[Rfam]
RNA sequence: GCGGACGGCCGGAUGACCGCGGACCGACGGCCCGUGCCGGCACGGUCCGAGGAAAGUCCGGGCUCCAUGCAGGCACGGUGCCGGGUAACGCCCGGCGGGGGCAACCCCAGGGAAAGCGCCACAGAGAACAGACCGCCCGGACCUGUCCGGGCAAGGGUGAAACGGUGGGGUAAAAGCCCACCGCGGGACGGGCAACCGGACCGGCACGGCAAGCCCCACCGGGAGCAAUGCCGAAUAGGGAUCGCGCGCGGGGGCCUGCCCCCGCAGGGCCGCCUGCGCCCCAGCAGAUCCGGGUUGGCAGCUUGAUCCCGUCGGCGACGGCGGGACCAGAGGAAUGGUCAUCCACGGGCGGAAACGCCCCGGACAGAACCCGGCUUACAGGCCGUCCGCGCGU
Numbered sequence: 001g002c003g004g005a006c007g008g009c010c011g012g013a014u015g016a017c018c019g020c021g022g023a024c025c026g027a028c029g030g031c032c033c034g035u036g037c038c039g040g041c042a043c044g045g046u047c048c049g050a051g052g053a054a055a056g057u058c059c060g061g062g063c064u065c066c067a068u069g070c071a072g073g074c075a076c077g078g079u080g081c082c083g084g085g086u087a088a089c090g091c092c093c094g095g096c097g098g099g100g101g102c103a104a105c106c107c108c109a110g111g112g113a114a115a116g117c118g119c120c121a122c123a124g125a126g127a128a129c130a131g132a133c134c135g136c137c138c139g140g141a142c143c144u145g146u147c148c149g150g151g152c153a154a155g156g157g158u159g160a161a162a163c164g165g166u167g168g169g170g171u172a173a174a175a176g177c178c179c180a181c182c183g184c185g186g187g188a189c190g191g192g193c194a195a196c197c198g199g200a201c202c203g204g205c206a207c208g209g210c211a212a213g214c215c216c217c218a219c220c221g222g223g224a225g226c227a228a229u230g231c232c233g234a235a236u237a238g239g240g241a242u243c244g245c246g247c248g249c250g251g252g253g254g255c256c257u258g259c260c261c262c263c264g265c266a267g268g269g270c271c272g273c274c275u276g277c278g279c280c281c282c283a284g285c286a287g288a289u290c291c292g293g294g295u296u297g298g299c300a301g302c303u304u305g306a307u308c309c310c311g312u313c314g315g316c317g318a319c320g321g322c323g324g325g326a327c328c329a330g331a332g333g334a335a336u337g338g339u340c341a342u343c344c345a346c347g348g349g350c351g352g353a354a355a356c357g358c359c360c361c362g363g364a365c366a367g368a369a370c371c372c373g374g375c376u377u378a379c380a381g382g383c384c385g386u387c388c389g390c391g392c393g394u
Base pairs, nucleotide, nucleotide: 001390002389003388004387005386006385007384008383009382010381011379012343013342014341015340016339017338018337020049021048022047023046024045025044026043054377055376056375058374059373060372061371062370063225064224065223066222072275073274076221077220078219079218080217081095082094083093084092085091096110097108098107099106100105111216112215116214117213118210119209120208133156134155135152136151137150138149139148140147141146164182165181166180167179168178169177183205184203185202186201189198190197191196229300230299231298232297239291240290241289242288243287267281268280269279270278307326308325309324310323311322312321313320314319
Rfam assigns this 394-nucleotide RNA from Paracoccus contaminans to the family "Bacterial RNase P class A". The family's RNA type in Rfam is ribozyme. Ribonuclease P (RNase P) is a ubiquitous endoribonuclease, found in archaea, bacteria and eukarya as well as chloroplasts and mitochondria. Rfam links the family to the GO terms ribonuclease P activity, tRNA processing and dimeric ribonuclease P complex. The family's consensus secondary structure is taken from published work.